[Rfam]
RNA sequence: GCAUCACUGAUGCCCCCCGGUGGGGGUGCGUGACUUCAAAUCACGUGGUGCCGAGAGGCACAGGGGUUCGACUCCUCCUGAGAUGC
Numbered sequence: 001g002c003a004u005c006a007c008u009g010a011u012g013c014c015c016c017c018c019g020g021u022g023g024g025g026g027u028g029c030g031u032g033a034c035u036u037c038a039a040a041u042c043a044c045g046u047g048g049u050g051c052c053g054a055g056a057g058g059c060a061c062a063g064g065g066g067u068u069c070g071a072c073u074c075c076u077c078c079u080g081a082g083a084u085g086c
Base pairs, nucleotide, nucleotide: 001086002085003084004083005082007080009078012027013026014025015024016023017022028046029045030044031043032042033041048061049060050059051058052057063077064076065075066074
Dot-bracket structure: (((((.(.(..((((((....))))))((((((.......)))))).(((((....))))).((((.......))))).).)))))
The family of this 86-nucleotide sequence from Microchloropsis gaditana is "Selenocysteine transfer RNA".
For this family Rfam cites "Eukaryotic selenocysteine tRNA has the 9/4 secondary structure" (Mizutani and Goto, FEBS Lett, 2000).
The family's consensus secondary structure is taken from published work.
Taxonomically the source falls in Microchloropsis (Eukaryota, Sar, Eustigmatophyceae, Eustigmatales).